[Rfam]
RNA sequence: UUCUUAUUAGCUCAAUGGUAGAGCAAAAUACUUCUAAUAUUUUGAUCUAAGUUCGAGUCUUAGAUAAGAAG
Numbered sequence: 001u002u003c004u005u006a007u008u009a010g011c012u013c014a015a016u017g018g019u020a021g022a023g024c025a026a027a028a029u030a031c032u033u034c035u036a037a038u039a040u041u042u043u044g045a046u047c048u049a050a051g052u053u054c055g056a057g058u059c060u061u062a063g064a065u066a067a068g069a070a071g
Stems, first nucleotide, its partner, number of pairs: 001070007010024004026042005047063005
The record is a 71-nucleotide sequence from Aspergillus nidulans, which matches "tRNA" in Rfam. The family is grouped with related families in Rfam's "tRNA clan". The source organism's lineage runs through Eukaryota, saccharomyceta, Eurotiomycetidae, Aspergillus and Aspergillus subgen. Nidulantes. The family's consensus secondary structure is taken from published work. By type it is a transfer RNA.